[Rfam]
RNA sequence: GUGUGUUUUGCUUUAGCAGCAUGUAAAUAUUGGAGUUACUCCUUGGCCAAAGCCUCCAAUAUUGCUCGUGCUGCUGAAGCAAGAAGUCA
Numbered sequence: 001g002u003g004u005g006u007u008u009u010g011c012u013u014u015a016g017c018a019g020c021a022u023g024u025a026a027a028u029a030u031u032g033g034a035g036u037u038a039c040u041c042c043u044u045g046g047c048c049a050a051a052g053c054c055u056c057c058a059a060u061a062u063u064g065c066u067c068g069u070g071c072u073g074c075u076g077a078a079g080c081a082a083g084a085a086g087u088c089a
Stems, first nucleotide, its partner, number of pairs: 003087002006084001013077011026063010
Dot-bracket structure: ..((.(......(((((((((((..((((((((((..................))))))))))...)))))))))))......).))..